[Rfam]
RNA sequence: AGGCCCAAAGAGAGAGGCAGGUCUGAUCCACAGUCUCCAUGGAAGCUGUUGAUCAGCCGUUGCCUCUCUCUUUCUUUCUG
Numbered sequence: 001a002g003g004c005c006c007a008a009a010g011a012g013a014g015a016g017g018c019a020g021g022u023c024u025g026a027u028c029c030a031c032a033g034u035c036u037c038c039a040u041g042g043a044a045g046c047u048g049u050u051g052a053u054c055a056g057c058c059g060u061u062g063c064c065u066c067u068c069u070c071u072u073u074c075u076u077u078c079u080g
Base pairs, nucleotide, nucleotide: 008072009071010070011069012068013067014066015065016064017063018062019061020060021058023056024055025054026053027052028051031048032047033046034045
Dot-bracket structure: .......((((((((((((((.((((((..((((..........))))..)))))).).)))))))))))))........
This 80-nucleotide RNA from Cnephaeus nilssonii belongs to the Rfam family "mir-574 microRNA precursor family". The family is grouped with related families in Rfam's "mir-574 microRNA precursor clan".